[Rfam]
RNA sequence: UUGCUCUGCCUCUGAUGAAGCCUGUGUUGGUAGGGACAUCUGAGAUUGUUGAUGAAUGCCAACGGCUCUGAUGGCGGCGU
Numbered sequence: 001u002u003g004c005u006c007u008g009c010c011u012c013u014g015a016u017g018a019a020g021c022c023u024g025u026g027u028u029g030g031u032a033g034g035g036a037c038a039u040c041u042g043a044g045a046u047u048g049u050u051g052a053u054g055a056a057u058g059c060c061a062a063c064g065g066c067u068c069u070g071a072u073g074g075c076g077g078c079g080u
Stems, first nucleotide, its partner, number of pairs: 002079004

Rfam assigns this 80-nucleotide RNA sequence from Bos taurus to the family "Small nucleolar RNA SNORD74". Rfam links the family to the GO terms nucleolus and RNA processing. A reference for the family is Galardi et al. (2002), "Purified box C/D snoRNPs are able to reproduce site-specific 2'-O-methylation of target RNA in vitro", Mol Cell Biol. By type it is a C/D-box small nucleolar RNA. Pairs were carried over by alignment from the consensus structure, which was predicted with PFOLD.